A member of the RNA family "c-di-AMP riboswitch aptamer (ydaO/yuaA leader)" from Nakamurella alba, 175 nucleotides long. The source organism's lineage runs through Bacteria, Actinomycetes, Nakamurellales, Nakamurellaceae and Nakamurella. Gene Ontology terms of the family: regulation of gene expression and cyclic-di-AMP binding.
[Rfam]
RNA sequence: AACUCUGGAACGAAAGGCGCGGACAGCGGCGGGGGACCCAACUUCCGGCGGUCGAGCGGUAUCCGAUCGUCUUGGGGUGAAACCGGUUCCGGCCGGUCGGGCAACUCCCAGGGAACUUCUCGUUCCGUGUGCCCGAACCCGACAGCUCACCUCGUAGGCGCAGCACAGGGAGGCA
Numbered sequence: 001a002a003c004u005c006u007g008g009a010a011c012g013a014a015a016g017g018c019g020c021g022g023a024c025a026g027c028g029g030c031g032g033g034g035g036a037c038c039c040a041a042c043u044u045c046c047g048g049c050g051g052u053c054g055a056g057c058g059g060u061a062u063c064c065g066a067u068c069g070u071c072u073u074g075g076g077g078u079g080a081a082a083c084c085g086g087u088u089c090c091g092g093c094c095g096g097u098c099g100g101g102c103a104a105c106u107c108c109c110a111g112g113g114a115a116c117u118u119c120u121c122g123u124u125c126c127g128u129g130u131g132c133c134c135g136a137a138c139c140c141g142a143c144a145g146c147u148c149a150c151c152u153c154g155u156a157g158g159c160g161c162a163g164c165a166c167a168g169g170g171a172g173g174c175a
Stems, first nucleotide, its partner, number of pairs: 003028001005026003029155006039074002075140003083096004099134004